[Rfam]
RNA sequence: GGACGCAGUCGCGACUGGCGUUUGGGUGGAAGUGACCACCGGGGAGCGAUCGACGGGCCGGCACCGCGCGCCUGGGUGCUUCCG
Numbered sequence: 001g002g003a004c005g006c007a008g009u010c011g012c013g014a015c016u017g018g019c020g021u022u023u024g025g026g027u028g029g030a031a032g033u034g035a036c037c038a039c040c041g042g043g044g045a046g047c048g049a050u051c052g053a054c055g056g057g058c059c060g061g062c063a064c065c066g067c068g069c070g071c072c073u074g075g076g077u078g079c080u081u082c083c084g
Stems, first nucleotide, its partner, number of pairs: 006052001008050005015043002017072005026039004061079005

The record is an 84-nucleotide sequence from Longimycelium tulufanense, which matches "ZMP/ZTP riboswitch aptamer (pfl RNA motif)" in Rfam. The base pairs follow the family's consensus structure, which is taken from published work.